[Rfam]
RNA: ZMP/ZTP riboswitch aptamer (pfl RNA motif)
Organism: Paenibacillus sp. J2TS4
RNA sequence: UGAACCCGGUGUAACUGGCGACAAGUGGGUACAACCACAAUGGAGCAUCGGGGGAUACGGCCGGUCGCCUGGGCAAAGAGC
Numbered sequence: 001u002g003a004a005c006c007c008g009g010u011g012u013a014a015c016u017g018g019c020g021a022c023a024a025g026u027g028g029g030u031a032c033a034a035c036c037a038c039a040a041u042g043g044a045g046c047a048u049c050g051g052g053g054g055a056u057a058c059g060g061c062c063g064g065u066c067g068c069c070u071g072g073g074c075a076a077a078g079a080g081c
Base pairs, nucleotide, nucleotide: 005052006051007050008049009048010047011046012045015042017069018068019067020066021065025038026037027036028035060074061073062072